[Rfam]
RNA: Small nucleolar RNA psi18S-841/snoR66
Organism: Drosophila kikkawai
RNA sequence: GGCAAAUGCACUCUGUGUCACAUUGAUUUAUAGCCUCAUGUGAUGACAAUUUGUUAAUUUGCCAGAACAAGGGAAUGCGUCUUAUCCAUGCAGUCAAACUCUCAUCUGGGUAAUUGCAUUGAAAACGUAUUUAACAUAAA
Numbered sequence: 001g002g003c004a005a006a007u008g009c010a011c012u013c014u015g016u017g018u019c020a021c022a023u024u025g026a027u028u029u030a031u032a033g034c035c036u037c038a039u040g041u042g043a044u045g046a047c048a049a050u051u052u053g054u055u056a057a058u059u060u061g062c063c064a065g066a067a068c069a070a071g072g073g074a075a076u077g078c079g080u081c082u083u084a085u086c087c088a089u090g091c092a093g094u095c096a097a098a099c100u101c102u103c104a105u106c107u108g109g110g111u112a113a114u115u116g117c118a119u120u121g122a123a124a125a126c127g128u129a130u131u132u133a134a135c136a137u138a139a140a
Base pairs, nucleotide, nucleotide: 002062003061004060005059006058007057010054011053014048015047016046017044018043019042020041021040022039023038025037026036070137074132075131078127079126085122086121088119089118090117091116092115093114094113
Dot-bracket structure: .((((((..((..((((((((((.((.........))))))))).)))....))..)))))).......(...((..((.....((.(((((((..................))))))).))...))...))....)...